[Rfam]
RNA sequence: CCUUUUAUGAUGAAGUAUUUUUCGGAUGUAAACUGCCUUCGGGCACAUGUCCGAGAGCGCAAAAACCAAGUGGACAUCUCCGUUGCCUUCCUUCUGAAU
Numbered sequence: 001c002c003u004u005u006u007a008u009g010a011u012g013a014a015g016u017a018u019u020u021u022u023c024g025g026a027u028g029u030a031a032a033c034u035g036c037c038u039u040c041g042g043g044c045a046c047a048u049g050u051c052c053g054a055g056a057g058c059g060c061a062a063a064a065a066c067c068a069a070g071u072g073g074a075c076a077u078c079u080c081c082g083u084u085g086c087c088u089u090c091c092u093u094c095u096g097a098a099u
Base pairs, nucleotide, nucleotide: 003098023082024081025080026079